[Rfam]
The family of this 67-nucleotide RNA from Psychromicrobium silvestre is "Actino-pnp RNA".
The organism belongs to Psychromicrobium, within Bacteria.
RNA sequence: CGCGGUCCUCGGUAGUGACCUCCGGAUCCUGACAUCAGGAUUCCGUGGGUCUCGAUCGAAGACCGGG
Dot-bracket structure: (.(((((.(((((...(((((.(((((((((....))))).)))).)))))...))))).))))).)